This 117-nucleotide RNA from Salisediminibacterium halotolerans belongs to the Rfam family "Ribosomal protein L20 leader". NCBI's taxonomy places the organism under Bacteria, Bacillati, Bacillota, Bacillaceae, Salisediminibacterium. From the family's description: This family is a putative r-protein leader autoregulatory structure found in B. subtilis and other low-GC Gram-positive bacteria. It is located in the 5' untranslated regions of mRNAs encoding initiation factor 3 followed by ribosomal proteins L35 and L20 (infC-rpmI-rplT).
RNA sequence: AAAAGCAAGAAGAAGCGCCCGCUUCUCACCUGACUGACGCAAGUUGGCAGGUUACGACCAUUUUUUAAAUGCAAUCGAAGUGUGGGCGCACGUAUGUGCCCGCACUUUUUUUACGUG
Number, nucleotide and partner (000 for none) at each position: 001a000002a000003a000004a000005g000006c000007a000008a000009g000010a000011a026012g025013a024014a023015g022016c021017g000018c000019c000020c000021g016022c015023u014024u013025c012026u011027c000028a052029c051030c050031u000032g000033a000034c047035u046036g045037a044038c043039g000040c000041a000042a000043g038044u037045u036046g035047g034048c000049a000050g030051g029052u028053u000054a000055c000056g000057a000058c000059c000060a000061u000062u000063u000064u000065u000066u000067a000068a000069a000070u000071g000072c000073a000074a000075u000076c000077g000078a000079a000080g000081u104082g103083u102084g101085g100086g099087c098088g097089c096090a095091c000092g000093u000094a000095u090096g089097u088098g087099c086100c085101c084102g083103c082104a081105c000106u000107u000108u000109u000110u000111u000112u000113a000114c000115g000116u000117g000